[Rfam]
RNA sequence: CCUAUACUUUCGCCAGCGGUCCCCUUUCAGGGGCCCCUCGCACCAGUCGUAGCAAGCGUUUUCGCCCUUUUGGGCAGAGCCUUGUUCGCCUGGCGCCCAUGGGCAGGACGCUCGUCUUUCUGUUCAUAGGGCCCGUCACUCGCCGUGGCGGCGCCGGCGUUCCGCGCCGAAUUCGCCACAGCGGGUGUAAGGGGUGGACCUCCACCUCGACCCCGUCCCUCGAGGAACGUCUCGAUGA
Numbered sequence: 001c002c003u004a005u006a007c008u009u010u011c012g013c014c015a016g017c018g019g020u021c022c023c024c025u026u027u028c029a030g031g032g033g034c035c036c037c038u039c040g041c042a043c044c045a046g047u048c049g050u051a052g053c054a055a056g057c058g059u060u061u062u063c064g065c066c067c068u069u070u071u072g073g074g075c076a077g078a079g080c081c082u083u084g085u086u087c088g089c090c091u092g093g094c095g096c097c098c099a100u101g102g103g104c105a106g107g108a109c110g111c112u113c114g115u116c117u118u119u120c121u122g123u124u125c126a127u128a129g130g131g132c133c134c135g136u137c138a139c140u141c142g143c144c145g146u147g148g149c150g151g152c153g154c155c156g157g158c159g160u161u162c163c164g165c166g167c168c169g170a171a172u173u174c175g176c177c178a179c180a181g182c183g184g185g186u187g188u189a190a191g192g193g194g195u196g197g198a199c200c201u202c203c204a205c206c207u208c209g210a211c212c213c214c215g216u217c218c219c220u221c222g223a224g225g226a227a228c229g230u231c232u233c234g235a236u237g238a
Stems, first nucleotide, its partner, number of pairs: 018199001020197001021194006030136001031134006040096002043093004048088002052085005099127010110116001137187007205225006
RNA: psaA RNA